[Rfam]
Nucleotides: 315
Base pairs, nucleotide, nucleotide: 001040002039003038004023005022006021007020008019009018010017028037029036030035045314046313048311049310050309051308052307054305056304057303058302060300061299062298064294065293067291071288072287073286078284079283081276082275083274084273089270090269091268092267094266095265101264102263103262104261105260106259107258108257109256110252111251117246118245119244120243121242123239126236127235128234129233130232134175135174136173137172138171142168143167144166145165146164147162148161149160150159151158177182185230186229187228188227189226195222196221197220203214204213
Number, partner (000 for none) and nucleotide at each position: 001040g002039u003038c004023g005022a006021g007020c008019u009018u010017u011000g012000u013000a014000a015000u016000g017010g018009g019008a020007g021006c022005u023004u024000g025000u026000a027000a028037c029036c030035c031000a032000a033000a034000u035030g036029g037028g038003g039002g040001c041000g042000g043000u044000u045314a046313a047000a048311g049310u050309g051308g052307u053000u054305g055000g056304a057303g058302g059000g060300u061299u062298g063000g064294g065293u066000c067291a068000a069000c070000c071288c072287a073286u074000u075000g076000a077000c078284u079283a080000g081276g082275g083274u084273u085000c086000u087000u088000u089270g090269g091268a092267g093000u094266g095265a096000c097000u098000a099000c100000c101264u102263u103262g104261g105260c106259c107258c108257g109256u110252c111251c112000g113000u114000c115000c116000a117246u118245u119244c120243c121242a122000a123239g124000u125000a126236a127235g128234g129233a130232g131000u132000u133000a134175g135174g136173u137172u138171g139000u140000g141000u142168g143167g144166g145165c146164c147162u148161u149160g150159g151158g152000c153000g154000a155000a156000g157000a158151c159150c160149c161148a162147g163000u164146g165145g166144u167143u168142c169000u170000a171138u172137g173136g174135u175134c176000c177182u178000u179000a180000g181000a182177g183000u184000c185230g186229a187228a188227g189226g190000a191000a192000a193000c194000c195222g196221c197220g198000u199000g200000a201000g202000g203214c204213u205000a206000g207000u208000u209000u210000c211000a212000c213204g214203g215000a216000g217000c218000a219000u220197c221196g222195u223000u224000a225000c226189c227188u228187u229186u230185c231000u232130c233129u234128c235127c236126u237000g238000u239123c240000a241000g242121u243120g244119g245118a246117a247000a248000g249000a250000a251111g252110g253000a254000u255000a256109g257108u258107g259106g260105g261104u262103c263102g264101a265095u266094u267092c268091u269090c270089c271000u272000a273084a274083g275082c276081c277000a278000a279000a280000a281000a282000a283079u284078a285000u286073a287072u288071g289000a290000a291067u292000a293065a294064u295000a296000u297000c298062u299061a300060a301000g302058u303057c304056u305054c306000u307052a308051u309050c310049a311048u312000a313046u314045u315000u
The family of this 315-nucleotide RNA from Cucurbita maxima is "Plant signal recognition particle RNA".
The base pairs follow the family's consensus structure, which is taken from published work.
The literature on the family includes a 2002 paper in Curr Opin Struct Biol by Wild et al., "Towards the structure of the mammalian signal recognition particle".
The match comes from Rfam's covariance-model search (106 bits).
Gene Ontology terms of the family: SRP-dependent cotranslational protein targeting to membrane, signal sequence recognition and signal recognition particle, endoplasmic reticulum targeting.